Source information: SmY spliceosomal RNA: an 82-nucleotide RNA sequence from Caenorhabditis japonica. Pairs were carried over by alignment from the consensus structure, which is taken from published work. The family has 61 seed sequences and 408 matches in Rfam 15.1. NCBI's taxonomy places the organism under Eukaryota, Eumetazoa, Chromadorea, Rhabditida, Caenorhabditis. Rfam's curators put it in the seed alignment. On this family, see MacMorris et al., RNA 2007: "A novel family of C. elegans snRNPs contains proteins associated with trans-splicing".
[Rfam]
RNA sequence: GUCAAAUAAUAAUAAAUUGCAGAGCCUUUAAGAAGACUCAAAGCACAAUUUUUGCGAACCCUGAUCUUGCUAGGUCGGGGUA
Dot-bracket structure: .....................(((.(((....))).)))..................((((((.((......)).)))))).